Rfam assigns this 93-nucleotide sequence from Tetracentron sinense to the family "MIR2275 microRNA precursor family". Gene Ontology terms of the family: miRNA-mediated post-transcriptional gene silencing and RISC complex. The base pairs follow the family's consensus structure, which was predicted with RNAalifold. A search with the family's covariance model found it, with a score of 70 bits.
RNA sequence: GUUUUGAAAGUGAGAAUCGGAGGAAAUCGAACCAUUUUUCAUAAUCAGAUUGAAAGAUUGGUUCGAUUUCCUCAUAUAUCUCACCUUCAAAAA
Numbered sequence: 001g002u003u004u005u006g007a008a009a010g011u012g013a014g015a016a017u018c019g020g021a022g023g024a025a026a027u028c029g030a031a032c033c034a035u036u037u038u039u040c041a042u043a044a045u046c047a048g049a050u051u052g053a054a055a056g057a058u059u060g061g062u063u064c065g066a067u068u069u070c071c072u073c074a075u076a077u078a079u080c081u082c083a084c085c086u087u088c089a090a091a092a093a
Stems, first nucleotide, its partner, number of pairs: 004090005011083004016077002020073002023070008032061002